Description:
Shown here is an 84-nucleotide RNA from Drosophila mojavensis, a member of the family "mir-310 microRNA precursor family". The family is grouped with related families in Rfam's "mir-92 microRNA precursor clan". The match comes from Rfam's covariance-model search (51 bits). NCBI's taxonomy places the organism under Eukaryota, Arthropoda, Mandibulata, Acalyptratae, mojavensis species complex. Gene Ontology terms of the family: cellular response to nitric oxide, miRNA-mediated post-transcriptional gene silencing and segmentation.
RNA sequence: GCGUUUGCAGGACGGUAUUUGUGACAAUAUGAAUUAUUGAAAUCAAUUUAUUCAGCAUAUUGCACAUCUCCCGGCCUAUAAAAC
Dot-bracket structure: ..(((((..((.((..(..((.(.(((((((........................)))))))).))..)..)).))..)))).)